[Rfam]
Shown here is a 164-nucleotide sequence from Lactobacillus crispatus, a member of the family "M-box riboswitch aptamer (ykoK leader)".
On this family, see Barrick et al., Proc Natl Acad Sci U S A 2004: "New RNA motifs suggest an expanded scope for riboswitches in bacterial genetic control".
Rfam 15.1 lists 1,095 matches to the family in 932 species.
The sequence is in the family's curated seed alignment.

RNA sequence: CAAAUAAACUGUUAGGUGAGGCUCCUACGUGAACACAAGCUAUCGCCCGGAAACAUCCAGAGAUGCCAACGAGUAAAAUAGUUCUUGUCGAGAUAAGGCGAGAUCCAGAUAGCUAGCCUGUGCUUACGUCACGUAGUGUCAAAACUGAACGACGAGGAAACAUC
Numbered sequence: 001c002a003a004a005u006a007a008a009c010u011g012u013u014a015g016g017u018g019a020g021g022c023u024c025c026u027a028c029g030u031g032a033a034c035a036c037a038a039g040c041u042a043u044c045g046c047c048c049g050g051a052a053a054c055a056u057c058c059a060g061a062g063a064u065g066c067c068a069a070c071g072a073g074u075a076a077a078a079u080a081g082u083u084c085u086u087g088u089c090g091a092g093a094u095a096a097g098g099c100g101a102g103a104u105c106c107a108g109a110u111a112g113c114u115a116g117c118c119u120g121u122g123c124u125u126a127c128g129u130c131a132c133g134u135a136g137u138g139u140c141a142a143a144a145c146u147g148a149a150c151g152a153c154g155a156g157g158a159a160a161c162a163u164c
Stems, first nucleotide, its partner, number of pairs: 005160001009156002011150002013096001015146003020140003025136008039113005045074002048071002054065004081105001083103002087099003115124003
Dot-bracket structure: ....(...(((([.(((..(((..((((((((......(((((.((.((....((((....))))....)).))......(.((..(((......])))..)).)...))))).(((....)))....)))))))).)))...)))..))....))...)....